Shown here is a 77-nucleotide sequence from Candidatus Moduliflexus flocculans, a member of the family "c-di-GMP-I-GGC riboswitch aptamer". The literature on the family includes a 2017 paper in Proc Natl Acad Sci U S A by Weinberg et al., "Bioinformatic analysis of riboswitch structures uncovers variant classes with altered ligand specificity". The base pairs follow the family's consensus structure, which is taken from published work. Its Rfam clan is "c-di-GMP_I riboswitch clan".

RNA sequence: AUUGUAAAAACCAAACCUAUCGUGAGGUAGGGACGGAAAGCCACGGGUCUUACAAACAGAUAGCCGGGUUGCCACAA
Numbered sequence: 001a002u003u004g005u006a007a008a009a010a011c012c013a014a015a016c017c018u019a020u021c022g023u024g025a026g027g028u029a030g031g032g033a034c035g036g037a038a039a040g041c042c043a044c045g046g047g048u049c050u051u052a053c054a055a056a057c058a059g060a061u062a063g064c065c066g067g068g069u070u071g072c073c074a075c076a077a
Stems, first nucleotide, its partner, number of pairs: 003074002011036002016031006034063001039070004044066003047061003